[Rfam]
Rfam assigns this 90-nucleotide RNA sequence from Nyctereutes procyonoides to the family "mir-8799 microRNA precursor family".
The base pairs follow the family's consensus structure, which was predicted with RNAalifold.
Its family is annotated with RISC complex and miRNA-mediated post-transcriptional gene silencing in the Gene Ontology.
Taxonomically the source falls in Nyctereutes (Eukaryota, Deuterostomia, Vertebrata, Canidae).

RNA sequence: GGGGGGAGGCUGGAUCCUGGGGUGUGUCCCGGCGCCCUGUGCUCCGGAGCCUGUGCUUUUGGAUUCGCGCUCCUGGUCGCGCAGCCGCCU
Numbered sequence: 001g002g003g004g005g006g007a008g009g010c011u012g013g014a015u016c017c018u019g020g021g022g023u024g025u026g027u028c029c030c031g032g033c034g035c036c037c038u039g040u041g042c043u044c045c046g047g048a049g050c051c052u053g054u055g056c057u058u059u060u061g062g063a064u065u066c067g068c069g070c071u072c073c074u075g076g077u078c079g080c081g082c083a084g085c086c087g088c089c090u
Stems, first nucleotide, its partner, number of pairs: 001090003005086002009082002011079003016076002019073003023069004027063003031057005039051001041050003